[Rfam]
RNA: purD RNA motif
Organism: Sulfurimonas hongkongensis
RNA sequence: GUAGGGUUUUUGUGUGUGGCGUCAUCAUUUGAGAUAUGUUAACUCUGUCGAGAUGAUACCACCGUUAUAAAACACUCUCUUCACCCAAAUACGGCUUUUAGAACCAAGCCAAAUGCGAGACGGCUACUUCGGG
Numbered sequence: 001g002u003a004g005g006g007u008u009u010u011u012g013u014g015u016g017u018g019g020c021g022u023c024a025u026c027a028u029u030u031g032a033g034a035u036a037u038g039u040u041a042a043c044u045c046u047g048u049c050g051a052g053a054u055g056a057u058a059c060c061a062c063c064g065u066u067a068u069a070a071a072a073c074a075c076u077c078u079c080u081u082c083a084c085c086c087a088a089a090u091a092c093g094g095c096u097u098u099u100a101g102a103a104c105c106a107a108g109c110c111a112a113a114u115g116c117g118a119g120a121c122g123g124c125u126a127c128u129u130c131g132g133g
Stems, first nucleotide, its partner, number of pairs: 003076002006073005017061003021057001023055004033049004093110005